[Rfam]
This 136-nucleotide RNA from Microcebus murinus belongs to the Rfam family "Small nucleolar RNA SNORA42/SNORA80 family". Its family is annotated with RNA processing and nucleolus in the Gene Ontology. The members of this family belong to the H/ACA class of snoRNAs that guide the sites of modification of uridines to pseudouridines. Human ACA42 (SNORA42) was cloned from HeLa cells by immunoprecipitation with anti-GAR1 antibody. Its is predicted to guide the pseudouridylation of residues U109 and U572 of 18S rRNA. ACA42 shares the same host gene with ACA26, ACA46, ACA50. The match comes from Rfam's covariance-model search (132 bits). Taxonomically the source falls in Microcebus (Eukaryota, Sarcopterygii, Mammalia, Strepsirrhini).
RNA sequence: GCAUGGGUUUGGAUUUAUGACAGGCCCAUCCCCCUGGGCCUCUCAUAGUGCCCCAUGCCAGAGCAAACUGUCACCCUAGACCAAUGUCUGGUCUCUGUGCCUAUAGGCUGCUGGUGCUGAAGCGGGUUGAAGAGUA
Dot-bracket structure: ((((((((......((((((.(((((.........)).))).)))))).)))).))))............(.((((.....((...((((((((..........))))))..))...))....)))).).......
Numbered sequence: 001g002c003a004u005g006g007g008u009u010u011g012g013a014u015u016u017a018u019g020a021c022a023g024g025c026c027c028a029u030c031c032c033c034c035u036g037g038g039c040c041u042c043u044c045a046u047a048g049u050g051c052c053c054c055a056u057g058c059c060a061g062a063g064c065a066a067a068c069u070g071u072c073a074c075c076c077u078a079g080a081c082c083a084a085u086g087u088c089u090g091g092u093c094u095c096u097g098u099g100c101c102u103a104u105a106g107g108c109u110g111c112u113g114g115u116g117c118u119g120a121a122g123c124g125g126g127u128u129g130a131a132g133a134g135u136a
Stems, first nucleotide, its partner, number of pairs: 001058004005053004015048006022041003025037002071129001073127004082119002087114002089110006